[Rfam]
RNA sequence: GGCUGGUCUGAUGGUAGUGGGUUAUCAGAACUUACUAACAUUAGUGUCACUGAAGUUGUUAUACAACCCCAUCGCUAAAUUUGACGGUUUUUA
Numbered sequence: 001g002g003c004u005g006g007u008c009u010g011a012u013g014g015u016a017g018u019g020g021g022u023u024a025u026c027a028g029a030a031c032u033u034a035c036u037a038a039c040a041u042u043a044g045u046g047u048c049a050c051u052g053a054a055g056u057u058g059u060u061a062u063a064c065a066a067c068c069c070c071a072u073c074g075c076u077a078a079a080u081u082u083g084a085c086g087g088u089u090u091u092u093a
Stems, first nucleotide, its partner, number of pairs: 001089004006085003010082002015077001017072005033061002037057002